Overview
Shown here is a 111-nucleotide RNA sequence from Firmicutes bacterium CAG:227, a member of the family "TPP riboswitch aptamer (THI element)".
[Rfam]
Nucleotides: 111
Base pairs, nucleotide, nucleotide: 006099008097011060012059013058014057017030018029019028020027021026037054038053039052040051041050066091067090068089069088073084074083075082
Number, partner (000 for none) and nucleotide at each position: 001000a002000a003000c004000a005000a006099a007000g008097a009000a010000a011060a012059g013058g014057g015000g016000a017030g018029c019028u020027g021026a022000c023000g024000c025000g026021u027020c028019g029018g030017c031000u032000g033000a034000g035000a036000g037054g038053a039052g040051a041050u042000a043000c044000g045000a046000a047000c048000g049000g050041a051040u052039u053038u054037c055000g056000a057014c058013c059012c060011u061000a062000a063000g064000a065000a066091c067090c068089u069088g070000a071000u072000a073084c074083g075082g076000a077000u078000a079000a080000u081000g082075c083074c084073g085000g086000c087000g088069u089068a090067g091066g092000a093000a094000g095000c096000a097008u098000a099006u100000u101000u102000u103000a104000g105000u106000g107000u108000g109000a110000a111000c
The base pairs follow the family's consensus structure, which is taken from published work.